A member of the RNA family "mir-4880 microRNA precursor family" from Branchiostoma belcheri, 73 nucleotides long. Taxonomically the source falls in Branchiostoma (Eukaryota, Eumetazoa, Deuterostomia, Branchiostomatidae). Gene Ontology terms of the family: RISC complex and miRNA-mediated post-transcriptional gene silencing. The family's consensus secondary structure was predicted with RNAalifold.

RNA sequence: UUGCUUGAUUUGCUAUUUGAUGACCAGUGGUCAUUUUGAAACCCAGUGGUCAAACAAUAGCAAACCCGGCGAG
Numbered sequence: 001u002u003g004c005u006u007g008a009u010u011u012g013c014u015a016u017u018u019g020a021u022g023a024c025c026a027g028u029g030g031u032c033a034u035u036u037u038g039a040a041a042c043c044c045a046g047u048g049g050u051c052a053a054a055c056a057a058u059a060g061c062a063a064a065c066c067c068g069g070c071g072a073g
Stems, first nucleotide, its partner, number of pairs: 001072005007066001009064009021052006028045003